[Rfam]
RNA sequence: CCCGUGACCCACAGGGCAGCAGGCGACUCUCGCCACUCGUUGCUGCCCGUGGGAACGGGACGAAAUGUGGCCUGUCUGAGCCGGGCUCCACGGUGAACCCCCGACUCUCAAUCAGGCUGAAUCGCAAG
Numbered sequence: 001c002c003c004g005u006g007a008c009c010c011a012c013a014g015g016g017c018a019g020c021a022g023g024c025g026a027c028u029c030u031c032g033c034c035a036c037u038c039g040u041u042g043c044u045g046c047c048c049g050u051g052g053g054a055a056c057g058g059g060a061c062g063a064a065a066u067g068u069g070g071c072c073u074g075u076c077u078g079a080g081c082c083g084g085g086c087u088c089c090a091c092g093g094u095g096a097a098c099c100c101c102c103g104a105c106u107c108u109c110a111a112u113c114a115g116g117c118u119g120a121a122u123c124g125c126a127a128g
Stems, first nucleotide, its partner, number of pairs: 001059005061124003069118005
RNA: eL15-Euryarchaeota ribosomal protein leader